[Rfam]
RNA: Small nucleolar RNA SNORD115
RNA sequence: GGUCAAUGAUGAGAACUCAUACUGACAUGAAGAGAGAUGAUGACUUAAAAAUCAUGCUCAGGAGUUCCCGUUGUGGCGC
Numbered sequence: 001g002g003u004c005a006a007u008g009a010u011g012a013g014a015a016c017u018c019a020u021a022c023u024g025a026c027a028u029g030a031a032g033a034g035a036g037a038u039g040a041u042g043a044c045u046u047a048a049a050a051a052u053c054a055u056g057c058u059c060a061g062g063a064g065u066u067c068c069c070g071u072u073g074u075g076g077c078g079c
Stems, first nucleotide, its partner, number of pairs: 002077002004073002007070002